[Rfam]
RNA: Small nucleolar RNA Z13/snr52
Organism: Botrytis porri
RNA sequence: UGACUCUAUAUGAUGAAAUAUUCCGGAUGUUAAAUCAUUACAUCUCCGAGAGCGCAAAACCGUGUGGAGAUUUUCCCAUGCCUUCCUUCUGAUUGCCUGGUU
Numbered sequence: 001u002g003a004c005u006c007u008a009u010a011u012g013a014u015g016a017a018a019u020a021u022u023c024c025g026g027a028u029g030u031u032a033a034a035u036c037a038u039u040a041c042a043u044c045u046c047c048g049a050g051a052g053c054g055c056a057a058a059a060c061c062g063u064g065u066g067g068a069g070a071u072u073u074u075c076c077c078a079u080g081c082c083u084u085c086c087u088u089c090u091g092a093u094u095g096c097c098u099g100g101u102u
Base pairs, nucleotide, nucleotide: 003101004100005099025076026075027074